[Rfam]
RNA: SL1 RNA
Nucleotides: 103
Base pairs, nucleotide, nucleotide: 003031004030005029006028007027008026009025010024011023012022034068035067036066037065039062040061041060083100084099085098086097087096088095089094
Number, partner (000 for none) and nucleotide at each position: 001000g002000g003031u004030u005029u006028a007027a008026u009025u010024a011023c012022c013000c014000a015000a016000g017000u018000u019000u020000g021000a022012g023011g024010u025009a026008a027007u028006u029005g030004a031003a032000u033000g034068u035067u036066u037065c038000u039062g040061c041060c042000c043000a044000c045000a046000g047000u048000u049000u050000c051000g052000a053000c054000u055000g056000c057000u058000g059000u060041g061040g062039c063000u064000u065037g066036a067035a068034g069000c070000g071000a072000a073000a074000u075000u076000u077000u078000g079000g080000a081000a082000c083100g084099u085098c086097c087096u088095g089094c090000a091000u092000g093000a094089g095088c096087g097086g098085g099084a100083c101000a102000a103000c